[Rfam]
RNA sequence: GUCGCCUCCAUCUUCAGGGUAGUUGAGUUGCGUGCGUCUGUUCGCACGCAACUCAACUACCCUGAAGAUGGAGGCGAC
Dot-bracket structure: ((((((((.(((((((((.(((.(((((.(((((((......))))))).))))).))).))))))))).))))))))
Annotation
The family of this 78-nucleotide sequence from Cryptotermes secundus is "mir-2040 microRNA precursor family". The base pairs follow the family's consensus structure, which was predicted with RNAalifold. Rfam links the family to the GO terms RISC complex and miRNA-mediated post-transcriptional gene silencing.